A member of the RNA family "Bacterial large signal recognition particle RNA" from Candidatus Galacturonatibacter soehngenii, 262 nucleotides long.
The base pairs follow the family's consensus structure, which is taken from published work.
Its Rfam clan is "SRP clan".
NCBI's taxonomy places the organism under Bacteria, Bacillati, Lachnospirales, Lachnospiraceae, Candidatus Galacturonatibacter.

RNA sequence: CCACGCAGCUGGGGAGUUAGCGGUGCCCUGUACCUGCAAUCCGCUACAGCAGGAGUGAUAUUUUGCCUAGGGUAUUCUAUUGUAAAGCUGCCCUAUAUAAGUGAUGUUGACGUUUGGGUCUUGCGCAACAAAAAUCUAUGAAUCGUGUCAGGUCAGGAAUGAAGCAGCACUAAGUAGAACCUUUUGUGUGCCGCAAGGUCGCCUGAGCCGAGUUAACUGUAUAGGUAACGUUUAUGGUAGAUAUUCGAAGCAAGAUGCGUGG
Numbered sequence: 001c002c003a004c005g006c007a008g009c010u011g012g013g014g015a016g017u018u019a020g021c022g023g024u025g026c027c028c029u030g031u032a033c034c035u036g037c038a039a040u041c042c043g044c045u046a047c048a049g050c051a052g053g054a055g056u057g058a059u060a061u062u063u064u065g066c067c068u069a070g071g072g073u074a075u076u077c078u079a080u081u082g083u084a085a086a087g088c089u090g091c092c093c094u095a096u097a098u099a100a101g102u103g104a105u106g107u108u109g110a111c112g113u114u115u116g117g118g119u120c121u122u123g124c125g126c127a128a129c130a131a132a133a134a135u136c137u138a139u140g141a142a143u144c145g146u147g148u149c150a151g152g153u154c155a156g157g158a159a160u161g162a163a164g165c166a167g168c169a170c171u172a173a174g175u176a177g178a179a180c181c182u183u184u185u186g187u188g189u190g191c192c193g194c195a196a197g198g199u200c201g202c203c204u205g206a207g208c209c210g211a212g213u214u215a216a217c218u219g220u221a222u223a224g225g226u227a228a229c230g231u232u233u234a235u236g237g238u239a240g241a242u243a244u245u246c247g248a249a250g251c252a253a254g255a256u257g258c259g260u261g262g
Stems, first nucleotide, its partner, number of pairs: 001262007008056003011029004016024003033053005061255006070246005076241010089227002093224006101217002103214003112208008120197006126188002129186005135178005145170004153162003